[Rfam]
RNA sequence: AAAAGGAGCAAUAACGUCCUCUUGAUAAAACAAGAGGGAAGCUAUUGCUCCUUUUUUUAUU
Numbered sequence: 001a002a003a004a005g006g007a008g009c010a011a012u013a014a015c016g017u018c019c020u021c022u023u024g025a026u027a028a029a030a031c032a033a034g035a036g037g038g039a040a041g042c043u044a045u046u047g048c049u050c051c052u053u054u055u056u057u058u059a060u061u
Base pairs, nucleotide, nucleotide: 002054003053004052005051006050007049008048009047010046011045012044013043015041019036020035021034022033023032024031
The family of this 61-nucleotide sequence from Ligularia intermedia is "Plastid-psbA-3 3UTR RNA". Rfam describes the family as follows. Plastid psbA-3 is a non-coding RNA (ncRNA) present in plastids. It was identified in inverted repeat sequences in the 3 prime untranslate region (3UTR) of photosystem II quinone-binding protein (psbA). It is one of the family's seed sequences. NCBI's taxonomy places the organism under Eukaryota, Embryophyta, Asterales, Tussilagininae, Ligularia.